[Rfam]
Nucleotides: 349
Stems, first nucleotide, its partner, number of pairs: 001345009011334001013312006020033005038332003042329005047214004055248002060210005065079005080100001081098007101205002106203002108199003122145002124141007153171006173194009218270004229260005240252004277296008
Number, partner (000 for none) and nucleotide at each position: 001345g002344c003343a004342c005341a006340a007339a008338c009337c010000c011334g012000a013312a014311c015310u016309a017308u018307c019000g020033c021032u022031u023030u024029g025000u026000u027000u028000a029024c030023a031022a032021a033020g034000a035000g036000g037000a038332a039331a040330g041000u042329c043328c044327g045326g046325a047214c048213a049212g050211c051000a052000u053000a054000g055248g056247g057000u058000a059000a060210a061209u062208c063207c064206a065079c066078c067077g068076g069075u070000u071000a072000a073000g074000c075069g076068c077067c078066g079065g080100g081098u082097u083096c084095c085094g086093g087092u088000a089000u090000a091000c092087g093086c094085c095084g096083g097082a098081a099000a100080c101205a102204g103000a104000c105000a106203g107202u108199g109198c110197c111000a112000c113000a114000g115000a116000a117000a118000a119000u120000a121000a122145c123144c124141g125140u126139u127138c128137u129136g130135c131000c132000a133000a134000c135130g136129c137128a138127g139126a140125a141124u142000a143000a144123g145122g146000g147000u148000g149000a150000a151000a152000a153171u154170g155169u156168g157167a158166g159000g160000u161000a162000a163000g164000a165000g166158c167157u168156c169155a170154c171153a172000g173194u174193a175192u176191g177190g178189u179188a180187u181186a182000g183000u184000a185000a186181u187180a188179u189178a190177c191176c192175g193174u194173a195000c196000g197110g198109g199108u200000a201000a202107a203106c204102c205101u206064u207063g208062g209061a210060u211050g212049c213048u214047g215000u216000a217000a218270u219269g220268c221267c222000a223000u224000g225000u226000a227000u228000a229260g230259g231258c232257u233256c234000g235000c236000c237000c238000g239000a240252g241251g242250g243249c244000g245000g246000c247056c248055c249243g250242c251241c252240u253000g254000a255000u256233g257232a258231g259230c260229c261000a262000g263000g264000g265000u266000a267221g268220g269219c270218a271000g272000c273000u274000a275000c276000a277296g278295g279294u280293a281292a282291a283290c284289a285000g286000u287000a288000a289284u290283g291282u292281u293280u294279a295278u296277c297000g298000c299000a300000g301000a302000u303000a304000a305000a306000u307018g308017a309016u310015a311014g312013u313000g314000u315000u316000g317000a318000a319000a320000c321000a322000g323000a324000a325046u326045c327044c328043g329042g330040c331039u332038u333000a334011c335000g336000a337009g338008g339007u340006u341005u342004g343003u344002g345001u346000u347000u348000u349000u
This 349-nucleotide sequence from Panacibacter microcysteis belongs to the Rfam family "Bacterial RNase P class A".